[Rfam]
RNA sequence: UGGUUCAAUGCAUUUUUUUAAUCAAAGAAAAUACGGUCGAGAAGAAGUUAGAGUAUGAGAUAUCAUUCUCUUUUUCUUCAUUGAUCUUUCUCUACUGUGUUUCUUUGAUUAAAGAGAUUCAUUGGAUCA
Numbered sequence: 001u002g003g004u005u006c007a008a009u010g011c012a013u014u015u016u017u018u019u020a021a022u023c024a025a026a027g028a029a030a031a032u033a034c035g036g037u038c039g040a041g042a043a044g045a046a047g048u049u050a051g052a053g054u055a056u057g058a059g060a061u062a063u064c065a066u067u068c069u070c071u072u073u074u075u076c077u078u079c080a081u082u083g084a085u086c087u088u089u090c091u092c093u094a095c096u097g098u099g100u101u102u103c104u105u106u107g108a109u110u111a112a113a114g115a116g117a118u119u120c121a122u123u124g125g126a127u128c129a
Base pairs, nucleotide, nucleotide: 001129002128003127004126005125006124007123012118013117016114017113018112019111020110021109022108023107024106025105026104027103028102029101030100032099033098034097035096036095037094039092040091041090042089043088044087
This 129-nucleotide RNA sequence from Trifolium pratense belongs to the Rfam family "MIR1509 microRNA precursor family". The organism belongs to Trifolium, within Eukaryota. The match comes from Rfam's covariance-model search (96 bits). Rfam 15.1 lists 42 matches to the family in 23 species.